[Rfam]
A member of the RNA family "mir-172 microRNA precursor family" from Ziziphus jujuba, 134 nucleotides long. The family's consensus secondary structure was predicted with PFOLD. Rfam links the family to the GO terms RISC complex and miRNA-mediated post-transcriptional gene silencing. On this family, see Jones-Rhoades and Bartel, Mol Cell 2004: "Computational Identification of Plant MicroRNAs and Their Targets, Including a Stress-Induced miRNA". Taxonomically the source falls in Ziziphus (Eukaryota, Tracheophyta, Mesangiospermae, eudicotyledons). The family has 11 seed sequences and 2,076 matches in Rfam 15.1. The match comes from Rfam's covariance-model search (89 bits). Rfam's curators write: mir-172 has been experimentally verified in Arabidopsis thaliana. This family is thought to target mRNAs coding for APETALA2-like transcription factors.
RNA sequence: CUGUUUGCCGAUGGAGCAUCAUCAAGAUUCACAAUCUAUUGGUGGGUGUUUGUGGGGCUUUUUUUUUGUCUCCAUUGCUCUACAACAAUGACCACUUGAUAUGGGAAUCUUGAUGAUGCUGCAGCGGCAAUCAG
Number, nucleotide and partner (000 for none) at each position: 001c000002u000003g000004u000005u000006u000007g000008c000009c000010g125011a000012u123013g122014g000015a120016g119017c118018a117019u116020c115021a114022u113023c112024a111025a110026g109027a108028u107029u106030c105031a000032c103033a102034a000035u000036c000037u000038a000039u000040u000041g000042g000043u000044g000045g000046g000047u000048g000049u000050u000051u000052g000053u000054g000055g000056g000057g000058c000059u000060u000061u000062u000063u000064u000065u000066u000067u000068g000069u000070c000071u000072c000073c000074a000075u000076u000077g000078c000079u000080c000081u000082a000083c000084a000085a000086c000087a000088a000089u000090g000091a000092c000093c000094a000095c000096u000097u000098g000099a000100u000101a000102u033103g032104g000105g030106a029107a028108u027109c026110u025111u024112g023113a022114u021115g020116a019117u018118g017119c016120u015121g000122c013123a012124g000125c010126g000127g000128c000129a000130a000131u000132c000133a000134g000